This 85-nucleotide RNA from Polypterus senegalus belongs to the Rfam family "mir-301 microRNA precursor family". The family's consensus secondary structure was predicted with WAR. Its family is annotated with miRNA-mediated post-transcriptional gene silencing and RISC complex in the Gene Ontology. A search with the family's covariance model found it, with a score of 72 bits.
RNA sequence: UGUGGUCAGGCGCUCUGACAAUGUUGCACUACUGUUUGACCAAUUGAAGCAGUGCAAUAGUAUUGUCAAAGCAUCAGACGUCAGC
Numbered sequence: 001u002g003u004g005g006u007c008a009g010g011c012g013c014u015c016u017g018a019c020a021a022u023g024u025u026g027c028a029c030u031a032c033u034g035u036u037u038g039a040c041c042a043a044u045u046g047a048a049g050c051a052g053u054g055c056a057a058u059a060g061u062a063u064u065g066u067c068a069a070a071g072c073a074u075c076a077g078a079c080g081u082c083a084g085c
Stems, first nucleotide, its partner, number of pairs: 002082001007077001009075002012072003016068004023058008034041001